[Rfam]
RNA sequence: AGGAGGAACAGCCUCAGUGGCUAUGGCCACUCUGGAAACCUGCAUUCAGCUCCCACAGUAACUAUGGGGCUCUCUGUCUGCAGGGCCUGGAGGCUCCGGUGCAGG
Numbered sequence: 001a002g003g004a005g006g007a008a009c010a011g012c013c014u015c016a017g018u019g020g021c022u023a024u025g026g027c028c029a030c031u032c033u034g035g036a037a038a039c040c041u042g043c044a045u046u047c048a049g050c051u052c053c054c055a056c057a058g059u060a061a062c063u064a065u066g067g068g069g070c071u072c073u074c075u076g077u078c079u080g081c082a083g084g085g086c087c088u089g090g091a092g093g094c095u096c097c098g099g100u101g102c103a104g105g
Stems, first nucleotide, its partner, number of pairs: 002097004009089003012085003019078003025072001030069005036063001040058003
Dot-bracket structure: .((((...((((((....(((...(....(((((.(...(((.............)))....).)))))..)...)))....))).)))....))))........

mir-8834 microRNA precursor family: a 105-nucleotide sequence from Nyctereutes procyonoides. Its family is annotated with miRNA-mediated post-transcriptional gene silencing and RISC complex in the Gene Ontology. A search with the family's covariance model found it, with a score of 57 bits. The base pairs follow the family's consensus structure, which was predicted with RNAalifold. Rfam 15.1 lists 13,926 matches to the family in 17 species.